Shown here is a 305-nucleotide sequence from Cucurbita maxima, a member of the family "Plant signal recognition particle RNA". Rfam 15.1 lists 4,988 matches to the family in 266 species. On this family, see Wild et al., Curr Opin Struct Biol 2002: "Towards the structure of the mammalian signal recognition particle". The organism belongs to Cucurbita, within Eukaryota.

[Rfam]
Nucleotides: 305
Base pairs, nucleotide, nucleotide: 001040002039003038004023005022006021007020008019009018010017028037029036030035043305044304045303046302047301048300049299050298051297053295056292057291058289059288061285062284063283064282065281066280068279070277071276073274074273075272076271077270078264079263080262081261082260083259084258085257086256089254090253092252093251102249104247105246106245107244108243110238111237113236114235115234116233117232119229120228122226123225124224125223126222128167129166130165131164133162134161135160138157139156141154142153143152144151145150168173175219176218177217178216179215184213185212186211187210188209193204194203195202
Number, partner (000 for none) and nucleotide at each position: 001040g002039c003038c004023g005022a006021g007020c008019u009018u010017g011000g012000u013000c014000g015000c016000g017010u018009a019008a020007g021006c022005u023004u024000g025000u026000a027000a028037c029036u030035c031000g032000a033000g034000u035030g036029a037028g038003g039002g040001c041000a042000u043305a044304a045303g046302g047301g048300a049299g050298a051297u052000a053295g054000a055000a056292c057291a058289u059288u060000u061285g062284u063283u064282c065281a066280a067000u068279u069000a070277u071276u072000c073274g074273g075272g076271c077270c078264g079263g080262g081261u082260u083259c084258a085257a086256g087000u088000u089254g090253g091000c092252u093251a094000a095000a096000u097000a098000u099000a100000u101000a102249u103000c104247g105246u106245c107244a108243g109000c110238c111237c112000a113236u114235u115234u116233c117232a118000a119229g120228c121000c122226a123225g124224g125223a126222g127000u128167g129166g130165g131164c132000c133162g134161u135160g136000u137000g138157g139156u140000u141154u142153g143152g144151g145150c146000g147000a148000a149000a150145g151144c152143c153142c154141a155000u156139a157138c158000g159000u160135c161134a162133c163000a164131g165130u166129c167128c168173u169000u170000a171000g172000a173168g174000u175219a176218g177217a178216g179215g180000g181000g182000a183000a184213c185212g186211c187210g188209u189000c190000a191000g192000g193204c194203u195202g196000g197000c198000c199000u200000c201000a202195c203194a204193g205000a206000g207000c208000a209188a210187c211186g212185u213184g214000a215179c216178c217177u218176c219175u220000c221000u222126c223125u224124c225123u226122u227000u228120g229119c230000a231000g232117u233116g234115g235114a236113a237111g238110g239000a240000u241000a242000a243108c244107u245106g246105g247104c248000c249102g250000a251093u252092g253090c254089c255000u256086c257085u258084u259083g260082a261081a262080c263079c264078c265000u266000c267000c268000a269000a270077g271076g272075u273074c274073c275000u276071a277070g278000g279068a280066u281065u282064g283063g284062g285061c286000c287000u288059a289058a290000a291057u292056g293000g294000a295053c296000c297051a298050u299049c300048u301047u302046c303045u304044u305043u